[Rfam]
RNA sequence: AUCGCUUCUCGGCUCUCUGAGCUAAGAUCAUGUGUAGUAUCUGUUCUUUGCAGUGUAAUUUCUGCAACGGUCUCUAAACUGAGACCAAUGAAAUUACCUGUAUUUUUCACCUCCGGACGGGUGCUGUGAGCUUGCUCAACCCCGUCCACGGGUCGGCCUCGUAUUGCAUUGCCUCGAGGAUUGGAAGCUUG
Numbered sequence: 001a002u003c004g005c006u007u008c009u010c011g012g013c014u015c016u017c018u019g020a021g022c023u024a025a026g027a028u029c030a031u032g033u034g035u036a037g038u039a040u041c042u043g044u045u046c047u048u049u050g051c052a053g054u055g056u057a058a059u060u061u062c063u064g065c066a067a068c069g070g071u072c073u074c075u076a077a078a079c080u081g082a083g084a085c086c087a088a089u090g091a092a093a094u095u096a097c098c099u100g101u102a103u104u105u106u107u108c109a110c111c112u113c114c115g116g117a118c119g120g121g122u123g124c125u126g127u128g129a130g131c132u133u134g135c136u137c138a139a140c141c142c143c144g145u146c147c148a149c150g151g152g153u154c155g156g157c158c159u160c161g162u163a164u165u166g167c168a169u170u171g172c173c174u175c176g177a178g179g180a181u182u183g184g185a186a187g188c189u190u191g
Stems, first nucleotide, its partner, number of pairs: 007027003011023004048067006069086006115147007127138004153184003157179005
Shown here is a 191-nucleotide RNA from Schistosoma mansoni, a member of the family "U2 spliceosomal RNA". NCBI's taxonomy places the organism under Eukaryota, Metazoa, Spiralia, Strigeidida, Schistosoma. The sequence is in the family's curated seed alignment. From the family's description: U2 is a small nuclear RNA (snRNA) component of the spliceosome (involved in pre-mRNA splicing). Complementary binding between U2 snRNA (in an area lying towards the 5' end but 3' to hairpin I) and the branchpoint sequence (BPS) of the intron results the bulging out of an unpaired adenosine, on the BPS, which initiates a nucleophilic attack at the intronic 5' splice site, thus starting the first of two transesterification reactions that mediate splicing. The family is grouped with related families in Rfam's "U2 clan". On this family, see Zwieb, Nucleic Acids Res 1997: "The uRNA database".